Rfam assigns this 84-nucleotide sequence from Tricholomella constricta to the family "tRNA".
RNA sequence: GGGCACAUGGUGUAGUUGGUUAUCACGCCCGCUUAGCAUUUCGGUGUCUGCGGGCGGUCCCCGGUUCAAUUCCGGGUGUGUCCA
Number, nucleotide and partner (000 for none) at each position: 001g083002g082003g081004c080005a079006c078007a077008u000009g000010g026011u025012g024013u000014a000015g000016u000017u000018g000019g000020u000021u000022a000023u000024c012025a011026c010027g000028c054029c053030c052031g051032c050033u000034u000035a000036g000037c000038a000039u000040u000041u000042c000043g000044g000045u000046g000047u000048c000049u000050g032051c031052g030053g029054g028055c000056g000057g000058u000059c000060c076061c075062c074063g073064g072065u000066u000067c000068a000069a000070u000071u000072c064073c063074g062075g061076g060077u007078g006079u005080g004081u003082c002083c001084a000
Rfam classes the family as a transfer RNA. Pairs were carried over by alignment from the consensus structure, which is taken from published work.